[Rfam]
RNA sequence: CGACUGUAAUGGUCAAGGUGGGUUUGAAGGCACUUGAUUUUCUUAAUGUCUCUAUUCCAUGUCCAAAUCUGGAAGCCCAGCGGCGCCCAGCACGAACCUUGCGGUGGUCACCCACUCGCACGGGUAGCCUGCGAUGCUGCGCGUGGCCCUAAGCAAUGAAGAUGAUACUUGAGGGAGGUUCCACUCUGCAGAGGCAUCUUCACCGUCAGGUGGCGCGCUGGAUUACGAUCGCUGGGGGUUUGGGAUAGAGCGUUGAGAUGGAGAUGUCGACUCCUGUUUUUUUGCGCUUUUUU
Numbered sequence: 001c002g003a004c005u006g007u008a009a010u011g012g013u014c015a016a017g018g019u020g021g022g023u024u025u026g027a028a029g030g031c032a033c034u035u036g037a038u039u040u041u042c043u044u045a046a047u048g049u050c051u052c053u054a055u056u057c058c059a060u061g062u063c064c065a066a067a068u069c070u071g072g073a074a075g076c077c078c079a080g081c082g083g084c085g086c087c088c089a090g091c092a093c094g095a096a097c098c099u100u101g102c103g104g105u106g107g108u109c110a111c112c113c114a115c116u117c118g119c120a121c122g123g124g125u126a127g128c129c130u131g132c133g134a135u136g137c138u139g140c141g142c143g144u145g146g147c148c149c150u151a152a153g154c155a156a157u158g159a160a161g162a163u164g165a166u167a168c169u170u171g172a173g174g175g176a177g178g179u180u181c182c183a184c185u186c187u188g189c190a191g192a193g194g195c196a197u198c199u200u201c202a203c204c205g206u207c208a209g210g211u212g213g214c215g216c217g218c219u220g221g222a223u224u225a226c227g228a229u230c231g232c233u234g235g236g237g238g239u240u241u242g243g244g245a246u247a248g249a250g251c252g253u254u255g256a257g258a259u260g261g262a263g264a265u266g267u268c269g270a271c272u273c274c275u276g277u278u279u280u281u282u283u284g285c286g287c288u289u290u291u292u293u
Stems, first nucleotide, its partner, number of pairs: 002014003016291003020287001022285002026281007040263001045254004050250010061076001062073004077237001078234005084227002087221005093215002096211004101206004106148001108146004112139001116134005122129002149153001157202007168193003175186003
Description:
A member of the RNA family "Fungal signal recognition particle RNA" from Sordaria macrospora, 293 nucleotides long. Rfam links the family to the GO terms SRP-dependent cotranslational protein targeting to membrane, signal sequence recognition, signal recognition particle, plasma membrane targeting and signal recognition particle, endoplasmic reticulum targeting. By type it is a non-coding RNA gene.